[Rfam]
RNA: Metazoan signal recognition particle RNA
Organism: Macaca fascicularis
RNA sequence: GCCAGGCAGGGUGGCACGUGCCUAUAGUUCCAGCUACUGGGGAGGCUGAAGUGGGAGGAGUGCUCGAGCCCAGGAGUUCUGGACUACAGUGUGCUAUGCCAAUCAGGUGUCCACACUAAGUUCCCCAUCAAUAUGGUGACCUCCUAGGAGUUGGAGAUCACCAGGUUGCCUAAGGUGGGAGGGACCAACCCAGGUUGGAAAUGGCACAGGUUGAAACUCCCAUGCUGAUCAGUAGUGGGAUCAUGUCUGUGAAUAGCCACUGUACUCCAGCCUGGGCAACACAGCAAGAUCCAGUCUCUU
Numbered sequence: 001g002c003c004a005g006g007c008a009g010g011g012u013g014g015c016a017c018g019u020g021c022c023u024a025u026a027g028u029u030c031c032a033g034c035u036a037c038u039g040g041g042g043a044g045g046c047u048g049a050a051g052u053g054g055g056a057g058g059a060g061u062g063c064u065c066g067a068g069c070c071c072a073g074g075a076g077u078u079c080u081g082g083a084c085u086a087c088a089g090u091g092u093g094c095u096a097u098g099c100c101a102a103u104c105a106g107g108u109g110u111c112c113a114c115a116c117u118a119a120g121u122u123c124c125c126c127a128u129c130a131a132u133a134u135g136g137u138g139a140c141c142u143c144c145u146a147g148g149a150g151u152u153g154g155a156g157a158u159c160a161c162c163a164g165g166u167u168g169c170c171u172a173a174g175g176u177g178g179g180a181g182g183g184a185c186c187a188a189c190c191c192a193g194g195u196u197g198g199a200a201a202u203g204g205c206a207c208a209g210g211u212u213g214a215a216a217c218u219c220c221c222a223u224g225c226u227g228a229u230c231a232g233u234a235g236u237g238g239g240a241u242c243a244u245g246u247c248u249g250u251g252a253a254u255a256g257c258c259a260c261u262g263u264a265c266u267c268c269a270g271c272c273u274g275g276g277c278a279a280c281a282c283a284g285c286a287a288g289a290u291c292c293a294g295u296c297u298c299u300u
Base pairs, nucleotide, nucleotide: 001046002045003044004023005022006021007020008019010017028043029042030041048298049297051295052294054292055291056290061286062285063284064283068277069276070275071274072273073272074271079270080269081268082267083266085264086263087262088261089260090259091258093257094256095255096254097253099251104249105248106247107246108245109244110243111239112238114237115236116235117234118233120230122228123227126224127223128222129168130167131166132165134163135162136161137160138159139158141156142155143154144153146151169175170174177221178220179219180218181217186213187212188211189210190209195204196203197202